[Rfam]
RNA sequence: AUGGGAGAGGUUCGCAAACUCCCUCGAUAAAAAACUAAGCAACA
Numbered sequence: 001a002u003g004g005g006a007g008a009g010g011u012u013c014g015c016a017a018a019c020u021c022c023c024u025c026g027a028u029a030a031a032a033a034a035c036u037a038a039g040c041a042a043c044a
Base pairs, nucleotide, nucleotide: 007025008024009023010022016036